A member of the RNA family "rpsL sRNA" from Melopsittacus undulatus, 84 nucleotides long. Rfam classes the family as a small RNA. On this family, see Meyer et al., BMC Genomics 2009: "Identification of candidate structured RNAs in the marine organism 'Candidatus Pelagibacter ubique'". Pairs were carried over by alignment from the consensus structure, which is taken from published work. The source organism's lineage runs through Eukaryota, Telluraves, Australaves, Psittaciformes and Melopsittacus. The family has 6 seed sequences and 52 matches in Rfam 15.1.

[Rfam]
RNA sequence: UUUGAUUUAUUUUUGCAUUUGAAUCUACUGAAUUUCAGUAAAUGCAACCACAAAAUUCCUAGCUGGGAUUUGUUGCAAUGAAAA
Numbered sequence: 001u002u003u004g005a006u007u008u009a010u011u012u013u014u015g016c017a018u019u020u021g022a023a024u025c026u027a028c029u030g031a032a033u034u035u036c037a038g039u040a041a042a043u044g045c046a047a048c049c050a051c052a053a054a055a056u057u058c059c060u061a062g063c064u065g066g067g068a069u070u071u072g073u074u075g076c077a078a079u080g081a082a083a084a
Stems, first nucleotide, its partner, number of pairs: 013078005020072006026040006045065002